This 41-nucleotide sequence from Bombilactobacillus apium belongs to the Rfam family "Ribosomal protein L19 leader". Pairs were carried over by alignment from the consensus structure, which was predicted with CMfinder. Rfam links the family to the GO term regulation of gene expression. The literature on the family includes a 1994 paper in Prog Nucleic Acid Res Mol Biol by Zengel and Lindahl, "Diverse mechanisms for regulating ribosomal protein synthesis in Escherichia coli". From the family's description: This family is a putative r-protein leader autoregulatory structure found in B. subtilis and other low-GC Gram-positive bacteria. It is located in the 5' untranslated regions of mRNAs encoding ribosomal protein L19 (rplS).
[Rfam]
RNA sequence: ACGAUAUUCCGCUGUAAUAUUUCGAUUUACAUGAGUAUCAG
Numbered sequence: 001a002c003g004a005u006a007u008u009c010c011g012c013u014g015u016a017a018u019a020u021u022u023c024g025a026u027u028u029a030c031a032u033g034a035g036u037a038u039c040a041g
Base pairs, nucleotide, nucleotide: 003039004038005037006036007035008034009033013031014030015029016028017027